[Rfam]
The family of this 132-nucleotide sequence from Cavia porcellus is "Small nucleolar RNA SNORA1". The base pairs follow the family's consensus structure, which was predicted with PFOLD. Gene Ontology terms of the family: nucleolus and RNA processing. A search with the family's covariance model found it, with a score of 85 bits. The organism belongs to Cavia, within Eukaryota. Rfam's curators write: ACA1 is a member of the H/ACA class of snoRNA that guide the sites of modification of uridines to pseudouridines. By type it is an H/ACA-box small nucleolar RNA.
RNA sequence: AGCCUCAUUCUAAAUUAGAAUGGGCAAUGUUCAUUGAUGUUCAAAUUGUUCAACGUGGCUAAAAUUGAGAUACAGCUCAUACUUCUGUCUCAGUAAAAGUUUACAGUGAUGACAAUGAGAAUUGUAAUGUUU
Dot-bracket structure: .(((.(.(............((((((...........)))))).........).).)))............((((..........((((.(..............).))))..........)))).......